The family of this 133-nucleotide RNA from Urechidicola croceus is "SAM riboswitch aptamer (S box leader)". Its family is annotated with regulation of gene expression in the Gene Ontology. It scores 74 bits against the family's covariance model. Rfam's curators write: The SAM riboswitch is found upstream of a number of genes which code for proteins involved in methionine or cysteine biosynthesis in Gram-positive bacteria.
[Rfam]
RNA sequence: AUGUUAUAGUGAAAGGCCGAGGGAAUAGACCCUUUGAAGCCUUAGCAACCCUUUAUUCGUAAAGAAGGUGCUAAAUUCUACUGUUUAUACUGGAUUUAUUCAGUACCUGUAAUAAGGAACAGAAAGAUAACAC
Number, nucleotide and partner (000 for none) at each position: 001a000002u132003g131004u130005u129006a128007u127008a000009g000010u000011g000012a000013a043014a042015g041016g040017c039018c000019g000020a000021g032022g031023g030024a000025a000026u080027a079028g078029a077030c023031c022032c021033u000034u000035u000036g000037a000038a000039g017040c016041c015042u014043u013044a072045g071046c070047a069048a000049c068050c067051c064052u063053u062054u061055a000056u000057u000058c000059g000060u000061a054062a053063a052064g051065a000066a000067g050068g049069u047070g046071c045072u044073a000074a000075a000076u125077u029078c028079u027080a026081c122082u121083g120084u119085u118086u117087a000088u000089a000090c000091u000092g000093g000094a000095u000096u000097u000098a000099u000100u000101c000102a000103g000104u000105a000106c000107c000108u000109g000110u000111a000112a000113u000114a000115a000116g000117g086118a085119a084120c083121a082122g081123a000124a000125a076126g000127a007128u006129a005130a004131c003132a002133c000